Overview
A member of the RNA family "Fluoride riboswitch aptamer (crcB RNA motif)" from Absicoccus porci, 73 nucleotides long.

[Rfam]
RNA sequence: UUUAGACAAGGGAAUGAGGUACUCCCGCGAUUCGUUCGAAACUGCCAUUCUGGCUGAUGACUUCUGAAAAGAA
Numbered sequence: 001u002u003u004a005g006a007c008a009a010g011g012g013a014a015u016g017a018g019g020u021a022c023u024c025c026c027g028c029g030a031u032u033c034g035u036u037c038g039a040a041a042c043u044g045c046c047a048u049u050c051u052g053g054c055u056g057a058u059g060a061c062u063u064c065u066g067a068a069a070a071g072a073a
Stems, first nucleotide, its partner, number of pairs: 010026004016064005044054003
Pairs were carried over by alignment from the consensus structure, which is taken from published work.
A search with the family's covariance model found it, with a score of 39 bits.